[Rfam]
RNA sequence: ACUGUGUCGUGCCCUUGUCAUUCUUCUUGCCUGUGUGUGUUGAUACAACUGGACGGAGAACUGAUAAGGGCAUGACCUUUA
Numbered sequence: 001a002c003u004g005u006g007u008c009g010u011g012c013c014c015u016u017g018u019c020a021u022u023c024u025u026c027u028u029g030c031c032u033g034u035g036u037g038u039g040u041u042g043a044u045a046c047a048a049c050u051g052g053a054c055g056g057a058g059a060a061c062u063g064a065u066a067a068g069g070g071c072a073u074g075a076c077c078u079u080u081a
Stems, first nucleotide, its partner, number of pairs: 012070009021060003025057003030052002
RNA: mir-184 microRNA precursor family